Rfam assigns this 146-nucleotide RNA sequence from Cavia porcellus to the family "Small nucleolar RNA SNORA12".
It scores 101 bits against the family's covariance model.
Rfam describes the family as follows. U108 belongs to the H/ACA family of snoRNAs. The sequence is predicted to guide the pseudouridylation of the U372 residue in the 28S rRNA subunit. However it has not been reported as a pseudouridylation site.
Its family is annotated with RNA processing and nucleolus in the Gene Ontology.

RNA sequence: AGGUGUGGUAGUUUCUUUCUGGCACAUGUGUUAAGUUUUCAGGUGGGUGUGACUCUACCAUAUACAUGGUAAGUAGCUAGCAAAAGCAUAAAGACUGAAAUAUCUCUCUUGAGUUUUUUUUGUAUCAGAUAUUGGCUCUCACAAUC
Numbered sequence: 001a002g003g004u005g006u007g008g009u010a011g012u013u014u015c016u017u018u019c020u021g022g023c024a025c026a027u028g029u030g031u032u033a034a035g036u037u038u039u040c041a042g043g044u045g046g047g048u049g050u051g052a053c054u055c056u057a058c059c060a061u062a063u064a065c066a067u068g069g070u071a072a073g074u075a076g077c078u079a080g081c082a083a084a085a086g087c088a089u090a091a092a093g094a095c096u097g098a099a100a101u102a103u104c105u106c107u108c109u110u111g112a113g114u115u116u117u118u119u120u121u122g123u124a125u126c127a128g129a130u131a132u133u134g135g136c137u138c139u140c141a142c143a144a145u146c
Stems, first nucleotide, its partner, number of pairs: 005061007022048002025045003029041002073139001075137004080087002105131001107129003